[Rfam]
RNA: mir-181 microRNA precursor family
RNA sequence: AAUUUUCGAGUUACAGUCAUUCAUCAGGUGGUUUAAAAUAUUUAAACCACCUGAUGAAUGACUGUAACUCGAAAAUUU
Numbered sequence: 001a002a003u004u005u006u007c008g009a010g011u012u013a014c015a016g017u018c019a020u021u022c023a024u025c026a027g028g029u030g031g032u033u034u035a036a037a038a039u040a041u042u043u044a045a046a047c048c049a050c051c052u053g054a055u056g057a058a059u060g061a062c063u064g065u066a067a068c069u070c071g072a073a074a075a076u077u078u
Stems, first nucleotide, its partner, number of pairs: 001078002004074005014064016031047004